Lysine riboswitch aptamer: a 183-nucleotide sequence from Ruminiclostridium cellobioparum.
The base pairs follow the family's consensus structure, which is taken from published work.
The match comes from Rfam's covariance-model search (114 bits).
Lineage of the source: Bacteria > Bacillota > Clostridia > Ruminiclostridium cellobioparum > Ruminiclostridium cellobioparum subsp. termitidis.
From the family's description: Riboswitches are metabolite binding domains within certain messenger RNAs that serve as precision sensors for their corresponding targets.

[Rfam]
RNA sequence: GGUUUAGAUAGAGGUGCGUUUUUUAUAAGUAUCUGCAAUGAGGAUUCUGGGGUCUUGUGAUUUGCAGUCAAAGGAAAAAACGCCGAAGGUCAUUUACAUCCCAUUUCCUGUGUAAUACCUGGUUUCAAGGUUAAGAGCCUUGUGACUGUCAUCAUAAUGAUGUGGUGGAGCGCUAUCUGUUUA
Numbered sequence: 001g002g003u004u005u006a007g008a009u010a011g012a013g014g015u016g017c018g019u020u021u022u023u024u025a026u027a028a029g030u031a032u033c034u035g036c037a038a039u040g041a042g043g044a045u046u047c048u049g050g051g052g053u054c055u056u057g058u059g060a061u062u063u064g065c066a067g068u069c070a071a072a073g074g075a076a077a078a079a080a081c082g083c084c085g086a087a088g089g090u091c092a093u094u095u096a097c098a099u100c101c102c103a104u105u106u107c108c109u110g111u112g113u114a115a116u117a118c119c120u121g122g123u124u125u126c127a128a129g130g131u132u133a134a135g136a137g138c139c140u141u142g143u144g145a146c147u148g149u150c151a152u153c154a155u156a157a158u159g160a161u162g163u164g165g166u167g168g169a170g171c172g173c174u175a176u177c178u179g180u181u182u183a
Stems, first nucleotide, its partner, number of pairs: 006178006016083009033067006087120004093114001095112004121147004126142006149168007